[Rfam]
RNA sequence: GGAAGAGAAUCAUGCCCGGUGGCAUGUCCGGACUUCAAAUCCGGGUGGGGCAGCGAGGCUGCCUUGGGUGGGUUCGACUCCCAUUCUCUUCC
Numbered sequence: 001g002g003a004a005g006a007g008a009a010u011c012a013u014g015c016c017c018g019g020u021g022g023c024a025u026g027u028c029c030g031g032a033c034u035u036c037a038a039a040u041c042c043g044g045g046u047g048g049g050g051c052a053g054c055g056a057g058g059c060u061g062c063c064u065u066g067g068g069u070g071g072g073u074u075c076g077a078c079u080c081c082c083a084u085u086c087u088c089u090u091c092c
Stems, first nucleotide, its partner, number of pairs: 001092009011026006027045006047065005069083004
Dot-bracket structure: (((((((((.((((((....))))))((((((.......)))))).(((((.........)))))...((((.......)))))))))))))

Overview:
Rfam assigns this 92-nucleotide RNA sequence from Ensifer meliloti to the family "Selenocysteine transfer RNA". The base pairs follow the family's consensus structure, which is taken from published work. Taxonomically the source falls in Ensifer meliloti (Bacteria, Alphaproteobacteria, Hyphomicrobiales, Ensifer). The sequence is in the family's curated seed alignment.